The record is a 74-nucleotide RNA from Ogataea parapolymorpha, which matches "tRNA" in Rfam. The family's RNA type in Rfam is transfer RNA.

RNA sequence: GGGCCCGUGGUGUAAUGGUUAUCACGUCAUCUUCCGGAGGUGCAUGGUUGCGGGUUCGAGUCCCGCCGGGCCCU
Number, nucleotide and partner (000 for none) at each position: 001g073002g072003g071004c070005c069006c068007g067008u000009g000010g025011u024012g023013u000014a000015a000016u000017g000018g000019u000020u000021a000022u000023c012024a011025c010026g000027u044028c042029a041030u040031c039032u000033u000034c000035c000036g000037g000038a000039g031040g030041u029042g028043c000044a027045u000046g000047g000048u000049u000050g066051c065052g064053g063054g062055u000056u000057c000058g000059a000060g000061u000062c054063c053064c052065g051066c050067c007068g006069g005070g004071c003072c002073c001074u000

It scores 54 bits against the family's covariance model.